The record is a 132-nucleotide RNA sequence from Microtus ochrogaster, which matches "Small nucleolar RNA SNORA69" in Rfam.
Rfam 15.1 lists 808 matches to the family in 584 species.
A search with the family's covariance model found it, with a score of 122 bits.
Gene Ontology terms of the family: nucleolus and RNA processing.
NCBI's taxonomy places the organism under Eukaryota, Eumetazoa, Teleostomi, Muroidea, Microtus.
U69 is a member of the H/ACA class of small nucleolar RNAs (snoRNAs) which act as guides in the the modification of uridines to pseudouridines.
The family's consensus secondary structure was predicted with PFOLD.
[Rfam]
RNA sequence: AAAGCAGGUCGCAAUUGCAGUGCUUCAUCUUGUGGGAGUGCUGCCAUUAUCCUGCUGAAAGAAAAGCCGUGCUGACUGUUUCUGAUUUUACCUUACCAGGAGCAAAAUCAUGACACGUUGGCACGAACAGCA
Numbered sequence: 001a002a003a004g005c006a007g008g009u010c011g012c013a014a015u016u017g018c019a020g021u022g023c024u025u026c027a028u029c030u031u032g033u034g035g036g037a038g039u040g041c042u043g044c045c046a047u048u049a050u051c052c053u054g055c056u057g058a059a060a061g062a063a064a065a066g067c068c069g070u071g072c073u074g075a076c077u078g079u080u081u082c083u084g085a086u087u088u089u090a091c092c093u094u095a096c097c098a099g100g101a102g103c104a105a106a107a108u109c110a111u112g113a114c115a116c117g118u119u120g121g122c123a124c125g126a127a128c129a130g131c132a
Base pairs, nucleotide, nucleotide: 003056004055005054006053007052008051018043019042020041021040022039023038024037025036026035068125069124070123071122072121073120074119075118076117083110084109085108086107087106088105089104091102093100094099